TPP riboswitch aptamer (THI element): a 95-nucleotide sequence from Oribacterium sinus. Gene Ontology term of the family: thiamine pyrophosphate binding. The match comes from Rfam's covariance-model search (58 bits).
RNA sequence: UACUGUUGCUAGGGGCGCUGUAUGCUGAGAGGUGAAAACCAACCCUUUAACCUGACCUGGAUAAUGCCAGCGUAGGGAAGCUAUAGUGAGCCCUC
Numbered sequence: 001u002a003c004u005g006u007u008g009c010u011a012g013g014g015g016c017g018c019u020g021u022a023u024g025c026u027g028a029g030a031g032g033u034g035a036a037a038a039c040c041a042a043c044c045c046u047u048u049a050a051c052c053u054g055a056c057c058u059g060g061a062u063a064a065u066g067c068c069a070g071c072g073u074a075g076g077g078a079a080g081c082u083a084u085a086g087u088g089a090g091c092c093c094u095c
Stems, first nucleotide, its partner, number of pairs: 006083001008081003011046004017025002032039002051076004057070004